RNA sequence: GGAAGAUAGGCGUUUCCGGUGAAACGGCAGGACUUCAAAUCCUGUUAAGGUUGCCAGCAAUCUUGGGUGGGUUCGACUCCCAUUGUCUUCC
Numbered sequence: 001g002g003a004a005g006a007u008a009g010g011c012g013u014u015u016c017c018g019g020u021g022a023a024a025c026g027g028c029a030g031g032a033c034u035u036c037a038a039a040u041c042c043u044g045u046u047a048a049g050g051u052u053g054c055c056a057g058c059a060a061u062c063u064u065g066g067g068u069g070g071g072u073u074c075g076a077c078u079c080c081c082a083u084u085g086u087c088u089u090c091c
Stems, first nucleotide, its partner, number of pairs: 001091009011026006027045006047064005068082004